A member of the RNA family "Bacterial large subunit ribosomal RNA" from Pedosphaera parvula, 591 nucleotides of a longer RNA.
RNA sequence: UACUAAGUGCAAUGCGGUGAAUGCCUUGGUGCCAGGAGGCGAUGAAGGACGUAGUAAGUUGCGAUAAGCCACGGGGAGCCGCAAGCAGGCUGUGAUCCGUGGAUUUCCGAAUGGGACAACCCAGCUGCCUUUACCGGCAGUUAUUGCAGGAUGAAUUCAUAGUCCUGCAAGGCGAAACGGGGUGAAGUGAAACAUCUCAGUAACCCCAGGAAAAGAAAACGAAGUGAUUCCGUCAGUAGUGGCGAGCGAAAGCGGAACAGGCUAAACCGGGAGGACUUGUCUUCCCGGGGUUGAGGGACCUUAAUGUGGCAGGUGGCGAGCGAGCUUAACGCUUUGGAAAGAGCGACCAAAGACCGUGACAGUCGGGUGAGCGAAGUUCAAAACCGCCUAGAGGCAUCCCAAGUAAUGCGGUGCACGUGAAACUCUGCAUGAAUCUGUCCAGACCACUGGAUAAGCCUAAAUACUACCUGGCAACCGAUAGUGAACUAGUACCGCGAGGGAAAGGUGAAAAGAACCCCUGUUAGGGGAGUUAAAAGAUCCUGCAACCGAUUGCAUACAAUGUGUUGGAGCUUCGCAAGAAGUGACAGCUUG
Numbered sequence: 001u002a003c004u005a006a007g008u009g010c011a012a013u014g015c016g017g018u019g020a021a022u023g024c025c026u027u028g029g030u031g032c033c034a035g036g037a038g039g040c041g042a043u044g045a046a047g048g049a050c051g052u053a054g055u056a057a058g059u060u061g062c063g064a065u066a067a068g069c070c071a072c073g074g075g076g077a078g079c080c081g082c083a084a085g086c087a088g089g090c091u092g093u094g095a096u097c098c099g100u101g102g103a104u105u106u107c108c109g110a111a112u113g114g115g116a117c118a119a120c121c122c123a124g125c126u127g128c129c130u131u132u133a134c135c136g137g138c139a140g141u142u143a144u145u146g147c148a149g150g151a152u153g154a155a156u157u158c159a160u161a162g163u164c165c166u167g168c169a170a171g172g173c174g175a176a177a178c179g180g181g182g183u184g185a186a187g188u189g190a191a192a193c194a195u196c197u198c199a200g201u202a203a204c205c206c207c208a209g210g211a212a213a214a215g216a217a218a219a220c221g222a223a224g225u226g227a228u229u230c231c232g233u234c235a236g237u238a239g240u241g242g243c244g245a246g247c248g249a250a251a252g253c254g255g256a257a258c259a260g261g262c263u264a265a266a267c268c269g270g271g272a273g274g275a276c277u278u279g280u281c282u283u284c285c286c287g288g289g290g291u292u293g294a295g296g297g298a299c300c301u302u303a304a305u306g307u308g309g310c311a312g313g314u315g316g317c318g319a320g321c322g323a324g325c326u327u328a329a330c331g332c333u334u335u336g337g338a339a340a341g342a343g344c345g346a347c348c349a350a351a352g353a354c355c356g357u358g359a360c361a362g363u364c365g366g367g368u369g370a371g372c373g374a375a376g377u378u379c380a381a382a383a384c385c386g387c388c389u390a391g392a393g394g395c396a397u398c399c400c401a402a403g404u405a406a407u408g409c410g411g412u413g414c415a416c417g418u419g420a421a422a423c424u425c426u427g428c429a430u431g432a433a434u435c436u437g438u439c440c441a442g443a444c445c446a447c448u449g450g451a452u453a454a455g456c457c458u459a460a461a462u463a464c465u466a467c468c469u470g471g472c473a474a475c476c477g478a479u480a481g482u483g484a485a486c487u488a489g490u491a492c493c494g495c496g497a498g499g500g501a502a503a504g505g506u507g508a509a510a511a512g513a514a515c516c517c518c519u520g521u522u523a524g525g526g527g528a529g530u531u532a533a534a535a536g537a538u539c540c541u542g543c544a545a546c547c548g549a550u551u552g553c554a555u556a557c558a559a560u561g562u563g564u565u566g567g568a569g570c571u572u573c574g575c576a577a578g579a580a581g582u583g584a585c586a587g588c589u590u591g
Stems, first nucleotide, its partner, number of pairs: 007555007015548003023540001024505002028476002030473007037465002039173002047108003050063003069102007078090003113122003123142007144170009178209001179207005189196002219225002228461001229256005239247002259458004267288007295400003299394004312385003318379004324372003330345005348352001354366003406430006413423001437452005492499002515527004563588004569582005
It is one of the family's seed sequences.